[Rfam]
RNA sequence: AUCCCCGUCGCGCCGGGGUCAGGGGCGCGGAACCUCCCUGUGGGACUGGCCCGGGCCGCGGCCCGGGCGUUUUU
Numbered sequence: 001a002u003c004c005c006c007g008u009c010g011c012g013c014c015g016g017g018g019u020c021a022g023g024g025g026c027g028c029g030g031a032a033c034c035u036c037c038c039u040g041u042g043g044g045a046c047u048g049g050c051c052c053g054g055g056c057c058g059c060g061g062c063c064c065g066g067g068c069g070u071u072u073u074u
Base pairs, nucleotide, nucleotide: 008030009029010028011027012026013025014024049068050067051066052065053064054063055062056061
RNA: Singlet oxygen resistance RNA X